[Rfam]
Overview
Acido-Lenti-1 RNA: a 45-nucleotide RNA from Granulicella sp. WH15. NCBI's taxonomy places the organism under Bacteria, Pseudomonadati, Acidobacteriota, Terriglobales, Granulicella. Pairs were carried over by alignment from the consensus structure, which is taken from published work. By type it is a small RNA.

RNA sequence: CUUAGGGCUUAGCCCCAGGCUGGUAUGGAGCGCGCCUUCAGCGCU
Numbered sequence: 001c002u003u004a005g006g007g008c009u010u011a012g013c014c015c016c017a018g019g020c021u022g023g024u025a026u027g028g029a030g031c032g033c034g035c036c037u038u039c040a041g042c043g044c045u
Base pairs, nucleotide, nucleotide: 001019002018003017005015006014007013008012032044033043034042035041